[Rfam]
RNA sequence: CGGUGUGCCUACUGCCCGUUAUCGCGGUAGGAACUCGGCCGCGCUGUGGGAUGGCAAGAUGCAUCCUUAGACGUUUAUCGUCAAGGGUUCGGUGUGAGGUGGGGUUCGAUGCCCC
Numbered sequence: 001c002g003g004u005g006u007g008c009c010u011a012c013u014g015c016c017c018g019u020u021a022u023c024g025c026g027g028u029a030g031g032a033a034c035u036c037g038g039c040c041g042c043g044c045u046g047u048g049g050g051a052u053g054g055c056a057a058g059a060u061g062c063a064u065c066c067u068u069a070g071a072c073g074u075u076u077a078u079c080g081u082c083a084a085g086g087g088u089u090c091g092g093u094g095u096g097a098g099g100u101g102g103g104g105u106u107c108g109a110u111g112c113c114c115c
Base pairs, nucleotide, nucleotide: 001018002017003016006033008031009030010029011028012027034098035097036096037095038093039092040091041090043088044087045086048067049066050065051064052063053062055061070082071081072080073079101115102114103113104112105111
RNA: epsC RNA